[Rfam]
Shown here is a 106-nucleotide sequence from Didymella pomorum, a member of the family "tRNA".
RNA sequence: GCUUCCUUGGUGUAGUCGGUUAUCACGUCGGUCUCAUAUUUCAUCGAGUAUGACUGUUCAUAGAACAGAAAUCCGAAGGCCGCCAGUUCGAAUCUGGCAGGGAGCA
Numbered sequence: 001g002c003u004u005c006c007u008u009g010g011u012g013u014a015g016u017c018g019g020u021u022a023u024c025a026c027g028u029c030g031g032u033c034u035c036a037u038a039u040u041u042c043a044u045c046g047a048g049u050a051u052g053a054c055u056g057u058u059c060a061u062a063g064a065a066c067a068g069a070a071a072u073c074c075g076a077a078g079g080c081c082g083c084c085a086g087u088u089c090g091a092a093u094c095u096g097g098c099a100g101g102g103a104g105c106a
Stems, first nucleotide, its partner, number of pairs: 001105007010026003028076004082098005
The family's consensus secondary structure is taken from published work.